[Rfam]
RNA sequence: CACCUAUCCAGAGCAGCCGAGAGACCUGGCUCGAUGACGCUGCAGCAACCGGUCGGUGUGACACGGUGCUAAUGCCAGAGGCGAUGGAGG
Number, nucleotide and partner (000 for none) at each position: 001c090002a000003c000004c087005u086006a085007u084008c083009c000010a000011g000012a000013g043014c042015a041016g040017c039018c000019g000020a000021g032022a031023g030024a000025c000026c078027u077028g076029g075030c023031u022032c021033g000034a000035u000036g000037a000038c000039g017040c016041u015042g014043c013044a070045g069046c068047a067048a000049c066050c065051g000052g062053u061054c060055g059056g000057u000058g000059u055060g054061a053062c052063a000064c000065g050066g049067u047068g046069c045070u044071a000072a000073u000074g082075c029076c028077a027078g026079a000080g000081g000082c074083g008084a007085u006086g005087g004088a000089g000090g001

Shown here is a 90-nucleotide RNA sequence from Ruaniaceae bacterium KH17, a member of the family "SAM riboswitch aptamer (S box leader)". Taxonomically the source falls in Ruaniaceae (Bacteria, Bacillati, Actinomycetota, Actinomycetes). The base pairs follow the family's consensus structure, which is taken from published work. Rfam's curators write: The SAM riboswitch is found upstream of a number of genes which code for proteins involved in methionine or cysteine biosynthesis in Gram-positive bacteria. The literature on the family includes a 2012 paper in RNA by Baird et al., "YbxF and YlxQ are bacterial homologs of L7Ae and bind K-turns but not K-loops".